The family of this 44-nucleotide RNA sequence from Urbifossiella limnaea is "Acido-Lenti-1 RNA". The family's RNA type in Rfam is small RNA. Pairs were carried over by alignment from the consensus structure, which is taken from published work.

[Rfam]
RNA sequence: CCCAGGGCUUCCGCCCCGGGCUAUGAACGGUCGCCCUCCGGGCU
Number, nucleotide and partner (000 for none) at each position: 001c020002c019003c018004a000005g016006g015007g014008c013009u000010u000011c000012c000013g008014c007015c006016c005017c000018g003019g002020g001021c000022u000023a000024u000025g000026a000027a000028c000029g000030g000031u000032c000033g043034c042035c041036c040037u000038c000039c000040g036041g035042g034043c033044u000